[Rfam]
RNA sequence: UAUUUUUGAGGUCAGAAAAGGUUCCUGACGCACUCAGAAAAGAGUACCUGAGAUGAUGGAUACACCGCCCAUCCAAAAAUA
Number, nucleotide and partner (000 for none) at each position: 001u081002a080003u079004u078005u077006u076007u075008g074009a000010g000011g029012u028013c027014a026015g025016a000017a000018a000019a000020g066021g065022u064023u000024c000025c015026u014027g013028a012029c011030g000031c050032a045033c044034u043035c042036a000037g000038a000039a000040a000041a000042g035043a034044g033045u032046a000047c000048c000049u000050g031051a000052g000053a000054u000055g073056a072057u071058g070059g069060a000061u000062a000063c000064a022065c021066c020067g000068c000069c059070c058071a057072u056073c055074c008075a007076a006077a005078a004079a003080u002081a001
Rfam assigns this 81-nucleotide RNA to the family "skipping-rope RNA". Rfam's curators put it in the seed alignment.